[Rfam]
RNA: MIR1886 microRNA precursor family
Organism: Solanum tuberosum
RNA sequence: UGAGAUAGAAUUAGCGUUUAGACAUGUGAUUUUACACUAAUUUCAUCUCAUG
Numbered sequence: 001u002g003a004g005a006u007a008g009a010a011u012u013a014g015c016g017u018u019u020a021g022a023c024a025u026g027u028g029a030u031u032u033u034a035c036a037c038u039a040a041u042u043u044c045a046u047c048u049c050a051u052g
Stems, first nucleotide, its partner, number of pairs: 001050006008043007016035002018029003